Glycine riboswitch aptamer: a 102-nucleotide RNA from Leucobacter chromiiresistens.
RNA sequence: CAAGUUGUGGCGGGAGAGUUCAGGGCCGAACGAUGCAGCCCCGACGCCGUAGGAGCAAUCCCUCCCCGGGAAUCUCUCAGGCCCCCGUACCGCCUCAGCACG
Numbered sequence: 001c002a003a004g005u006u007g008u009g010g011c012g013g014g015a016g017a018g019u020u021c022a023g024g025g026c027c028g029a030a031c032g033a034u035g036c037a038g039c040c041c042c043g044a045c046g047c048c049g050u051a052g053g054a055g056c057a058a059u060c061c062c063u064c065c066c067c068g069g070g071a072a073u074c075u076c077u078c079a080g081g082c083c084c085c086c087g088u089a090c091c092g093c094c095u096c097a098g099c100a101c102g
Base pairs, nucleotide, nucleotide: 006097007096009094010093011092012091013090020044021043023041024040025039026038046082047081048080049078053076054075055074059069060068
Its family is annotated with glycine biosynthetic process in the Gene Ontology. Taxonomically the source falls in Leucobacter (Bacteria, Actinomycetes, Micrococcales, Microbacteriaceae).